[Rfam]
Nucleotides: 102
Base pairs, nucleotide, nucleotide: 001102002101003100004099005098006097007096048069049068050067051066052065053064054063055062056061
Number, partner (000 for none) and nucleotide at each position: 001102c002101g003100u004099c005098u006097g007096c008000g009000u010000u011000g012000a013000u014000g015000a016000a017000g018000u019000a020000u021000g022000a023000a024000a025000c026000u027000u028000a029000u030000c031000a032000c033000a034000u035000g036000u037000c038000a039000g040000a041000c042000u043000u044000c045000a046000g047000a048069g049068g050067u051066u052065c053064u054063u055062u056061u057000a058000a059000a060000u061056a062055a063054a064053g065052g066051a067050a068049u069048c070000a071000a072000u073000g074000a075000g076000a077000u078000u079000a080000u081000a082000u083000u084000u085000c086000a087000u088000a089000u090000a091000u092000c093000u094000g095000a096007g097006c098005a099004g100003a101002u102001g

A member of the RNA family "Small nucleolar RNA R64/Z200 family" from Mikania micrantha, 102 nucleotides long.
It is annotated as a C/D-box small nucleolar RNA.